[Rfam]
RNA sequence: AUUGCAGGUUCGAGGCUGCAACAGAAGCACUCACAGUGCAGCACUGCCAGAUUUCAAUGAAUCUGUGAAUUCUGCU
Numbered sequence: 001a002u003u004g005c006a007g008g009u010u011c012g013a014g015g016c017u018g019c020a021a022c023a024g025a026a027g028c029a030c031u032c033a034c035a036g037u038g039c040a041g042c043a044c045u046g047c048c049a050g051a052u053u054u055c056a057a058u059g060a061a062u063c064u065g066u067g068a069a070u071u072c073u074g075c076u
Stems, first nucleotide, its partner, number of pairs: 015042003020076001022074005027039003048065007